[Rfam]
RNA sequence: CAGGGGAGCGCAGGAUCCUGGGCUGUGUCCCCCAGCGCCCUGGGACCCAGGGCCUGUGCUGCUGGAAUCACGCUCCCGGGUGCGGCUCCCG
Numbered sequence: 001c002a003g004g005g006g007a008g009c010g011c012a013g014g015a016u017c018c019u020g021g022g023c024u025g026u027g028u029c030c031c032c033c034a035g036c037g038c039c040c041u042g043g044g045a046c047c048c049a050g051g052g053c054c055u056g057u058g059c060u061g062c063u064g065g066a067a068u069c070a071c072g073c074u075c076c077c078g079g080g081u082g083c084g085g086c087u088c089c090c091g
Stems, first nucleotide, its partner, number of pairs: 001091001003089004010083002017079002020076003024072004028066002032064001033061006042054001044053001046051001
The family of this 91-nucleotide RNA sequence from Nyctereutes procyonoides is "mir-8799 microRNA precursor family". It scores 58 bits against the family's covariance model. Taxonomically the source falls in Nyctereutes (Eukaryota, Vertebrata, Dipnotetrapodomorpha, Mammalia). Gene Ontology terms of the family: RISC complex and miRNA-mediated post-transcriptional gene silencing.